Rfam assigns this 127-nucleotide sequence from Thermoanaerobacter brockii to the family "c-di-AMP riboswitch aptamer (ydaO/yuaA leader)".

RNA sequence: GUUAAAAAUAUGCCGAAUCCCCGAUAAGGGGUACGGGGGAACUAAAUUGGGGUGAAUCCACUUUCGUGGUAGGGUGGCCCUCACCCGAACCCGUCAACUAACCUCGGAGGCGAAAGGGGGAACAACA
Numbered sequence: 001g002u003u004a005a006a007a008a009u010a011u012g013c014c015g016a017a018u019c020c021c022c023g024a025u026a027a028g029g030g031g032u033a034c035g036g037g038g039g040a041a042c043u044a045a046a047u048u049g050g051g052g053u054g055a056a057u058c059c060a061c062u063u064u065c066g067u068g069g070u071a072g073g074g075u076g077g078c079c080c081u082c083a084c085c086c087g088a089a090c091c092c093g094u095c096a097a098c099u100a101a102c103c104u105c106g107g108a109g110g111c112g113a114a115a116g117g118g119g120g121a122a123c124a125a126c127a
Stems, first nucleotide, its partner, number of pairs: 011112004019031004034106005043049002050092003058069004072086004
The source organism's lineage runs through Bacteria, Clostridia, Thermoanaerobacteraceae, Thermoanaerobacter and Thermoanaerobacter brockii. A search with the family's covariance model found it, with a score of 93 bits.